Rfam assigns this 67-nucleotide RNA sequence to the family "mir-30 microRNA precursor family". Rfam describes the family as follows. This family consists of the mammalian microRNA (miRNA) precursor mir-30a. Animal miRNAs are transcribed as ~70nt precursors and subsequently processed by the Dicer enzyme to give a ~22nt product. In this case the mature sequence comes from both the 3' (miR-30) and 5' (mir-97-6) arms of the precursor. The extents of the hairpin precursors are not generally known and are estimated based on hairpin prediction.

[Rfam]
RNA sequence: GCUGUAAACAUCCCCGACUGGAAGCUGUACCUGCUCCAGCUUUCAGUCAGAUGUUUGCUGCACCUGG
Numbered sequence: 001g002c003u004g005u006a007a008a009c010a011u012c013c014c015c016g017a018c019u020g021g022a023a024g025c026u027g028u029a030c031c032u033g034c035u036c037c038a039g040c041u042u043u044c045a046g047u048c049a050g051a052u053g054u055u056u057g058c059u060g061c062a063c064c065u066g067g
Base pairs, nucleotide, nucleotide: 002060004058005057006056007055008054009053010052011051012050017047018046019045020044021043022042023041024040025039026038